[Rfam]
RNA sequence: GGAGUUGACUAGAUAGUCGCCGCUUUUAUAGUUUUUAUUCUAAAGAAUAGACUAUACAAAAGGGGAGGAAAGUCCGGGCUCCACAGGGCAAGGUGCCAGGUAACUCCUGGGGAGCAUAAGCUUACGACAAGUGCAACAGAGAAUAAACCGCCAAUGGCUCGUAUAAGCGAGAUCAGGUAAGGGUGAAAUGGUGCGGUAAGAGCGCACCGCGCGGUUGGCAACAGUCCGUGGCAGGUAAACUCCACCUGGAGCAAGGCCAAAUAAGGGUUCCAAUAGUACUGCCCGUACUGAACCCGGGUAGGCUGCUUGAGCCAGUGAGCGAUUAUUGGCCUAGAGGAAUGACUAUCCACGACAGAACCCGGCUUACAGGUCAACUCCCUCA
Number, nucleotide and partner (000 for none) at each position: 001g378002g377003a376004g375005u374006u373007g372008a371009c370010u369011a000012g347013a346014u345015a344016g343017u342018c341019g000020c065021c064022g000023c062024u061025u060026u059027u058028a000029u000030a000031g000032u000033u000034u000035u000036u000037a000038u000039u000040c000041u000042a000043a000044a000045g000046a000047a000048u000049a000050g000051a000052c000053u000054a000055u000056a000057c000058a027059a026060a025061a024062g023063g000064g021065g020066a000067g000068g000069a000070a365071a364072g363073u000074c362075c361076g360077g359078g358079c251080u250081c249082c248083a000084c000085a000086g284087g283088g282089c281090a000091a247092g246093g245094u244095g243096c110097c109098a108099g107100g106101u000102a000103a000104c000105u000106c100107c099108u098109g097110g096111g125112g123113a122114g121115c120116a000117u000118a000119a000120g115121c114122u113123u112124a000125c111126g242127a241128c000129a000130a000131g240132u239133g236134c235135a000136a000137c000138a000139g000140a000141g000142a000143a000144u000145a000146a000147a000148c182149c181150g178151c177152c176153a000154a000155u000156g000157g000158c171159u170160c169161g168162u167163a000164u000165a000166a000167g162168c161169g160170a159171g158172a000173u000174c000175a000176g152177g151178u150179a000180a000181g149182g148183g000184u000185g000186a000187a000188a000189u000190g208191g207192u206193g205194c204195g203196g000197u000198a000199a000200g000201a000202g000203c195204g194205c193206a192207c191208c190209g232210c230211g229212c228213g227214g226215u224216u223217g222218g000219c000220a000221a000222c217223a216224g215225u000226c214227c213228g212229u211230g210231g000232c209233a000234g000235g134236u133237a000238a000239a132240c131241u127242c126243c095244a094245c093246c092247u091248g082249g081250a080251g079252c000253a000254a000255g304256g303257c302258c301259a000260a000261a000262u000263a000264a000265g295266g294267g293268u292269u291270c290271c000272a000273a000274u000275a289276g288277u287278a286279c285280u000281g089282c088283c087284c086285g279286u278287a277288c276289u275290g270291a269292a268293c267294c266295c265296g000297g000298g000299u000300a000301g258302g257303c256304u255305g000306c000307u000308u000309g000310a000311g330312c329313c328314a327315g326316u325317g324318a323319g000320c000321g000322a000323u318324u317325a316326u315327u314328g313329g312330c311331c000332u000333a000334g000335a000336g000337g000338a000339a000340u000341g018342a017343c016344u015345a014346u013347c012348c000349a000350c000351g000352a000353c000354a000355g000356a000357a000358c078359c077360c076361g075362g074363c072364u071365u070366a000367c000368a000369g010370g009371u008372c007373a006374a005375c004376u003377c002378c001379c000380u000381c000382a000
Shown here is a 382-nucleotide RNA from Candidatus Profftia tarda, a member of the family "Bacterial RNase P class A". Gene Ontology terms of the family: tRNA processing, ribonuclease P activity and dimeric ribonuclease P complex. NCBI's taxonomy places the organism under Bacteria, Pseudomonadota, Gammaproteobacteria, Enterobacterales, Candidatus Profftia. Ribonuclease P (RNase P) is a ubiquitous endoribonuclease, found in archaea, bacteria and eukarya as well as chloroplasts and mitochondria. Its best characterised activity is the generation of mature 5'-ends of tRNAs by cleaving the 5'-leader elements of precursor-tRNAs. Cellular RNase Ps are ribonucleoproteins. RNA from bacterial RNase Ps retains its catalytic activity in the absence of the protein subunit, i.e. it is a ribozyme.